[Rfam]
RNA sequence: AAAUUGAAGAGUUUGAUCAUGGCUCAGAUUGAACGCUGGCGGCAGGCCUAACACAUGCAAGUCGAGCGGCAUCGGGAAGGUAGCUUGCUAUCUUUGCCGGCGAGCGGCGGACGGGUGAGUAAAGUCUGGGGAUCUGCCUGAUGGAGGGGGAUAACUACUGGAAACGGUAGCUAAUACCGCAUGAUGUUACGCGACCAAAGCGGGGGACCUCCGGGCCUCGCGCCAUCAGAUGAACCCAGAUGGGAUUAGCUAGUAGGAGAGGUAAUGGCUCCCCUAGGCGACGAUCCCUAGCUGGUCUGAGAGGAUAACCAGCCACACUGGAACUGAGAGACGGUCCAGACUCCUACGGGAGGCAGCAGUGGGGAAUAUUGCACAAUGGGCGCAAGCCUGAUGCAGCCAUGCCGCGUGUGUGAAGAAGGCCUUCGGGUUGUAAAGCACUUUCAGCGAGGAGGAAUGAAGCAAUGCAAAGAGUGUUGCUAAUGGACGUUACUCGCAGAAGAAGCACCGGCUAACUCCGUGCCAGCAGCCGCGGUAAUACGGAGGGUGCGAGCGUUAAUCGGAAUUACUG
Numbered sequence: 001a002a003a004u005u006g007a008a009g010a011g012u013u014u015g016a017u018c019a020u021g022g023c024u025c026a027g028a029u030u031g032a033a034c035g036c037u038g039g040c041g042g043c044a045g046g047c048c049u050a051a052c053a054c055a056u057g058c059a060a061g062u063c064g065a066g067c068g069g070c071a072u073c074g075g076g077a078a079g080g081u082a083g084c085u086u087g088c089u090a091u092c093u094u095u096g097c098c099g100g101c102g103a104g105c106g107g108c109g110g111a112c113g114g115g116u117g118a119g120u121a122a123a124g125u126c127u128g129g130g131g132a133u134c135u136g137c138c139u140g141a142u143g144g145a146g147g148g149g150g151a152u153a154a155c156u157a158c159u160g161g162a163a164a165c166g167g168u169a170g171c172u173a174a175u176a177c178c179g180c181a182u183g184a185u186g187u188u189a190c191g192c193g194a195c196c197a198a199a200g201c202g203g204g205g206g207a208c209c210u211c212c213g214g215g216c217c218u219c220g221c222g223c224c225a226u227c228a229g230a231u232g233a234a235c236c237c238a239g240a241u242g243g244g245a246u247u248a249g250c251u252a253g254u255a256g257g258a259g260a261g262g263u264a265a266u267g268g269c270u271c272c273c274c275u276a277g278g279c280g281a282c283g284a285u286c287c288c289u290a291g292c293u294g295g296u297c298u299g300a301g302a303g304g305a306u307a308a309c310c311a312g313c314c315a316c317a318c319u320g321g322a323a324c325u326g327a328g329a330g331a332c333g334g335u336c337c338a339g340a341c342u343c344c345u346a347c348g349g350g351a352g353g354c355a356g357c358a359g360u361g362g363g364g365a366a367u368a369u370u371g372c373a374c375a376a377u378g379g380g381c382g383c384a385a386g387c388c389u390g391a392u393g394c395a396g397c398c399a400u401g402c403c404g405c406g407u408g409u410g411u412g413a414a415g416a417a418g419g420c421c422u423u424c425g426g427g428u429u430g431u432a433a434a435g436c437a438c439u440u441u442c443a444g445c446g447a448g449g450a451g452g453a454a455u456g457a458a459g460c461a462a463u464g465c466a467a468a469g470a471g472u473g474u475u476g477c478u479a480a481u482g483g484a485c486g487u488u489a490c491u492c493g494c495a496g497a498a499g500a501a502g503c504a505c506c507g508g509c510u511a512a513c514u515c516c517g518u519g520c521c522a523g524c525a526g527c528c529g530c531g532g533u534a535a536u537a538c539g540g541a542g543g544g545u546g547c548g549a550g551c552g553u554u555a556a557u558c559g560g561a562a563u564u565a566c567u568g
Stems, first nucleotide, its partner, number of pairs: 009025005027558004032554006039405006045398002047363001052361003056358003061108003066105002069101002077094007115316003124241007133233002138229007146180001148178002155170006186195003200221006242288003249279003254276004259271003291313004295306004318339005341352004369395001371394003377390005408438004418429004442499001444494005452485001458478006502547005513542005523530002
Dot-bracket structure: ........(((((.......))))).((((.((((((.(((((((((....(((.(((..(((..((.((......(((((((....))))))).....))..)))))......(((......(((((((..((...(((((((.(.((.....((((((....))))))......)).).....(((....)))....((((((..........)))))).)))))))..)).)))))))(((....(((..((((.(((.......))).)))))))......)))..((((((((....))))...))))))).(((((............))))).((((....))))...)))))).).....(.(((...(((((....))))).)))).)).))))))..((((......((((....)))).....))))...(.(((((...(.....((((((.........))))))......)....)))))....)..(((((......(((((.....((....)).......)))))))))).))))))))))..........
Shown here is a 568-nucleotide part of an RNA from Candidatus Fukatsuia symbiotica, a member of the family "Bacterial small subunit ribosomal RNA". Lineage of the source: Bacteria > Pseudomonadota > Gammaproteobacteria > Yersiniaceae > Candidatus Fukatsuia. The family is grouped with related families in Rfam's "SSU clan".